[Rfam]
RNA sequence: GCGGGGCGCCCCUAGGGUUCCGCCGUCGGCGACGGGUCCGCGACCGAGAGGGGCAGGCGGGCCGACGAAGGCCCGUUCCACGGCGGGACAAAAACCCGGGAGGC
Numbered sequence: 001g002c003g004g005g006g007c008g009c010c011c012c013u014a015g016g017g018u019u020c021c022g023c024c025g026u027c028g029g030c031g032a033c034g035g036g037u038c039c040g041c042g043a044c045c046g047a048g049a050g051g052g053g054c055a056g057g058c059g060g061g062c063c064g065a066c067g068a069a070g071g072c073c074c075g076u077u078c079c080a081c082g083g084c085g086g087g088a089c090a091a092a093a094a095c096c097c098g099g100g101a102g103g104c
Base pairs, nucleotide, nucleotide: 008054009053010052011051012050015045016044020042021040022038023035024034025033026032027031056077057076058075059074060073061072062071063070079099081102085097086096087095
Shown here is a 104-nucleotide RNA sequence from Krasilnikovia cinnamomea, a member of the family "Guanidine-I riboswitch aptamer". The literature on the family includes a 2004 paper in Proc Natl Acad Sci U S A by Barrick et al., "New RNA motifs suggest an expanded scope for riboswitches in bacterial genetic control". Rfam describes the family as follows. This family represents a conserved RNA structure found upstream of the ykkC and yxkD genes in Bacillus subtilis and related genes in other bacteria. It scores 67 bits against the family's covariance model. The base pairs follow the family's consensus structure.